[Rfam]
RNA sequence: GUUUUUGGGUAAUCGCGGUCUGACUUGAUCAGGCUGAGGAAAGUCCAUGCUCGCACAGGCUGUGAUGCCUGUAGUGUUCGUGCUUAGCGAAAAAAUAAGCUAAGGUACUCUUUAGGAGUAACGGCAGGAAAACAAGCUAAGGUCUUGACUAUGCUUAAGUAUCCUUGAAAGUGCCACAGUGACGAAGCGAAUAAGGAAACUUAUUCGGUGGAACGCGGUAAACCCCUCGAGCGAGCAACCCAAACAAUGGUAGGGGCGCUUUUUGUUGGGAAUUAAGAACGAGACAAAAAGGCAGGUUAACUGCAGAUAGAUGGUUACCACACUAUUUUUCCAGGGAGAAAAAAUAGUGUACAGAACAUGGCUUAUAGAA
Numbered sequence: 001g002u003u004u005u006u007g008g009g010u011a012a013u014c015g016c017g018g019u020c021u022g023a024c025u026u027g028a029u030c031a032g033g034c035u036g037a038g039g040a041a042a043g044u045c046c047a048u049g050c051u052c053g054c055a056c057a058g059g060c061u062g063u064g065a066u067g068c069c070u071g072u073a074g075u076g077u078u079c080g081u082g083c084u085u086a087g088c089g090a091a092a093a094a095a096u097a098a099g100c101u102a103a104g105g106u107a108c109u110c111u112u113u114a115g116g117a118g119u120a121a122c123g124g125c126a127g128g129a130a131a132a133c134a135a136g137c138u139a140a141g142g143u144c145u146u147g148a149c150u151a152u153g154c155u156u157a158a159g160u161a162u163c164c165u166u167g168a169a170a171g172u173g174c175c176a177c178a179g180u181g182a183c184g185a186a187g188c189g190a191a192u193a194a195g196g197a198a199a200c201u202u203a204u205u206c207g208g209u210g211g212a213a214c215g216c217g218g219u220a221a222a223c224c225c226c227u228c229g230a231g232c233g234a235g236c237a238a239c240c241c242a243a244a245c246a247a248u249g250g251u252a253g254g255g256g257c258g259c260u261u262u263u264u265g266u267u268g269g270g271a272a273u274u275a276a277g278a279a280c281g282a283g284a285c286a287a288a289a290a291g292g293c294a295g296g297u298u299a300a301c302u303g304c305a306g307a308u309a310g311a312u313g314g315u316u317a318c319c320a321c322a323c324u325a326u327u328u329u330u331c332c333a334g335g336g337a338g339a340a341a342a343a344a345u346a347g348u349g350u351a352c353a354g355a356a357c358a359u360g361g362c363u364u365a366u367a368g369a370a
Stems, first nucleotide, its partner, number of pairs: 004370003007366001008319007016036006041364003045361005050235005055072006078230003082226001083104006105122001106120006123225002126165004134156004141150003171223002173219003188207008239255003259291007292304004321349009
Bacterial RNase P class B: a 370-nucleotide RNA from Enterococcus lacertideformus. Rfam classes the family as a ribozyme. Rfam links the family to the GO terms dimeric ribonuclease P complex, ribonuclease P activity and tRNA processing. From the family's description: Ribonuclease P (RNase P) is a ubiquitous endoribonuclease, found in archaea, bacteria and eukarya as well as chloroplasts and mitochondria. Its best characterised activity is the generation of mature 5'-ends of tRNAs by cleaving the 5'-leader elements of precursor-tRNAs. Cellular RNase Ps are ribonucleoproteins. RNA from bacterial RNase Ps retains its catalytic activity in the absence of the protein subunit, i.e. it is a ribozyme. Taxonomically the source falls in Enterococcus (Bacteria, Bacillota, Lactobacillales, Enterococcaceae).